[Rfam]
The record is a 99-nucleotide RNA from Thomasclavelia ramosa, which matches "azaaromatic riboswitch aptamer (yjdF RNA)" in Rfam.
The base pairs follow the family's consensus structure, which is taken from published work.
Taxonomically the source falls in Thomasclavelia ramosa (Bacteria, Bacillati, Bacillota, Thomasclavelia).
RNA sequence: GGUUGCUAAGAUAAAAACACGAACUUGUUGGUAGUCAAGUUGUGCAUUUUGCAUCAGUAACCUGCCCUCCUGAGGUUGUCCGUUCUUAGAAGUAAAUUU
Numbered sequence: 001g002g003u004u005g006c007u008a009a010g011a012u013a014a015a016a017a018c019a020c021g022a023a024c025u026u027g028u029u030g031g032u033a034g035u036c037a038a039g040u041u042g043u044g045c046a047u048u049u050u051g052c053a054u055c056a057g058u059a060a061c062c063u064g065c066c067c068u069c070c071u072g073a074g075g076u077u078g079u080c081c082g083u084u085c086u087u088a089g090a091a092g093u094a095a096a097u098u099u
Stems, first nucleotide, its partner, number of pairs: 004091001006089006022041006042054005064076001066075003